The family of this 173-nucleotide RNA sequence from Rheinheimera sp. D18 is "Lysine riboswitch aptamer".
The family's consensus secondary structure is taken from published work.
RNA sequence: UAGACCAGAAGAGGUGCGUUAGCCAGGUAACUCGGGACAGAUGUCUAUACAUCGUAGCCCGAGUGAGGGGGCGUAACGCCGAAAAAAACACCAGUAUAGAACAGUGUUUUUUGGCCGUAUCGGUUGAAUCCGUGCGACUGUCACCUGAAUUUCGGUGGAGAGCUUCUGGCCUU
Numbered sequence: 001u002a003g004a005c006c007a008g009a010a011g012a013g014g015u016g017c018g019u020u021a022g023c024c025a026g027g028u029a030a031c032u033c034g035g036g037a038c039a040g041a042u043g044u045c046u047a048u049a050c051a052u053c054g055u056a057g058c059c060c061g062a063g064u065g066a067g068g069g070g071g072c073g074u075a076a077c078g079c080c081g082a083a084a085a086a087a088a089c090a091c092c093a094g095u096a097u098a099g100a101a102c103a104g105u106g107u108u109u110u111u112u113g114g115c116c117g118u119a120u121c122g123g124u125u126g127a128a129u130c131c132g133u134g135c136g137a138c139u140g141u142c143a144c145c146u147g148a149a150u151u152u153c154g155g156u157g158g159a160g161a162g163c164u165u166c167u168g169g170c171c172u173u
Stems, first nucleotide, its partner, number of pairs: 006168006016079006024071001030064007083112009113139002116136005122131002141158005147152001